[Rfam]
RNA sequence: CACUGCCUACCAAUCUCGACCGGACCUCGACCGGCUCGUCUAUGUUGCCAAUCGACUCGGCGUGGCGUCGGUCGUGGUAGAUAGGCGGUC
Dot-bracket structure: .((((((((.(.(((.(((((((.((.((.((((.(((..............))).)))))).))..))))))).))).).)))))))).
RNA: mir-1307 microRNA precursor family
Organism: Equus caballus